[Rfam]
RNA: ZMP/ZTP riboswitch aptamer (pfl RNA motif)
RNA sequence: CGGGCGCACCACGACUGGCGCAGGUGGGCAACCACCAGGGAGUGACGUCGGGAGCAUCGCCCGCCUGGGUGCUCCUC
Numbered sequence: 001c002g003g004g005c006g007c008a009c010c011a012c013g014a015c016u017g018g019c020g021c022a023g024g025u026g027g028g029c030a031a032c033c034a035c036c037a038g039g040g041a042g043u044g045a046c047g048u049c050g051g052g053a054g055c056a057u058c059g060c061c062c063g064c065c066u067g068g069g070u071g072c073u074c075c076u077c
Base pairs, nucleotide, nucleotide: 003049004048005047006046010044011043012042015039016038017065018064019063020062024035025034026033027032054072055071056070057069058068